Mammalian CPEB3 ribozyme: an 82-nucleotide sequence from Astyanax mexicanus.
[Rfam]
RNA sequence: GGAGCAAGGUGGGGGGUCAAGGUAGAAGCGUUCACAUCGCGACCCCUGUCAAGCGAUAGCAAUAUCACUUGCGAAUUCUACC
Numbered sequence: 001g002g003a004g005c006a007a008g009g010u011g012g013g014g015g016g017u018c019a020a021g022g023u024a025g026a027a028g029c030g031u032u033c034a035c036a037u038c039g040c041g042a043c044c045c046c047u048g049u050c051a052a053g054c055g056a057u058a059g060c061a062a063u064a065u066c067a068c069u070u071g072c073g074a075a076u077u078c079u080a081c082c
Stems, first nucleotide, its partner, number of pairs: 013046006021082007028040003050071004055066004